[Rfam]
Shown here is a 77-nucleotide sequence from Oncorhynchus kisutch, a member of the family "mir-92 microRNA precursor family".
From the family's description: This family represents the microRNA precursor mir-92.
It scores 53 bits against the family's covariance model.
The family's consensus secondary structure was predicted with PFOLD.

RNA sequence: UGUCCUGGUCAGGUUGGGAGGGGUGUCAGUGCUGUUACUCUGAAGGCAUUGCACUUGUCCCGGCCUGUUUAGGAUUG
Numbered sequence: 001u002g003u004c005c006u007g008g009u010c011a012g013g014u015u016g017g018g019a020g021g022g023g024u025g026u027c028a029g030u031g032c033u034g035u036u037a038c039u040c041u042g043a044a045g046g047c048a049u050u051g052c053a054c055u056u057g058u059c060c061c062g063g064c065c066u067g068u069u070u071a072g073g074a075u076u077g
Stems, first nucleotide, its partner, number of pairs: 004073003010067005016061004022055003027051007